mir-302 microRNA precursor family: a 66-nucleotide sequence from Dipodomys ordii.
Its Rfam clan is "mir-290 clan".
Rfam 15.1 lists 2,090 matches to the family in 516 species.
For this family Rfam cites "Human embryonic stem cells express a unique set of microRNAs" (Suh et al., Dev Biol, 2004).
Pairs were carried over by alignment from the consensus structure, which was predicted with RNAalifold.
The match comes from Rfam's covariance-model search (65 bits).
Its family is annotated with RISC complex and miRNA-mediated post-transcriptional gene silencing in the Gene Ontology.
RNA sequence: CCUUUACUUUAACGUGGAGGCUCUUGCUGUGACAUAACAAAUAAGUGCUUCCAUGUUUGAGUGUGG
Numbered sequence: 001c002c003u004u005u006a007c008u009u010u011a012a013c014g015u016g017g018a019g020g021c022u023c024u025u026g027c028u029g030u031g032a033c034a035u036a037a038c039a040a041a042u043a044a045g046u047g048c049u050u051c052c053a054u055g056u057u058u059g060a061g062u063g064u065g066g
Base pairs, nucleotide, nucleotide: 002066003065005063006062007061008060011057012056013055014054015053016052017051018050019049020048021047023045024044025043026042028040